[Rfam]
RNA sequence: GAGGCAACUUUUUGCCGAGUGAAUCGAAUAUCGAUAUCUCUCUUUUUCCCAGUUGCCUAAAUCAUGUUAUGGCCGUGUGAGGAAUUAGCUGAUUGGUUAUGUAAUUGCAAUGUAUCCAAUCUUUCCCUCUUUGCUGCUACAUUU
Numbered sequence: 001g002a003g004g005c006a007a008c009u010u011u012u013u014g015c016c017g018a019g020u021g022a023a024u025c026g027a028a029u030a031u032c033g034a035u036a037u038c039u040c041u042c043u044u045u046u047u048c049c050c051a052g053u054u055g056c057c058u059a060a061a062u063c064a065u066g067u068u069a070u071g072g073c074c075g076u077g078u079g080a081g082g083a084a085u086u087a088g089c090u091g092a093u094u095g096g097u098u099a100u101g102u103a104a105u106u107g108c109a110a111u112g113u114a115u116c117c118a119a120u121c122u123u124u125c126c127c128u129c130u131u132u133g134c135u136g137c138u139a140c141a142u143u144u
Base pairs, nucleotide, nucleotide: 003057004056005055006054007053008052009051017042018041019040021038022037023035024034025033026032064142065141066140067139071135072134073133079129080128081127082126091121092120093119095117096116098114099113100112
Description
A member of the RNA family "Small nucleolar RNA snoR144" from Raphanus sativus, 144 nucleotides long. The family has 4 seed sequences and 27 matches in Rfam 15.1. On this family, see Chen and Wu, Nucleic Acids Res 2009: "Mining small RNA sequencing data: a new approach to identify small nucleolar RNAs in Arabidopsis". The family's consensus secondary structure was predicted with mfold. The family's RNA type in Rfam is H/ACA-box small nucleolar RNA.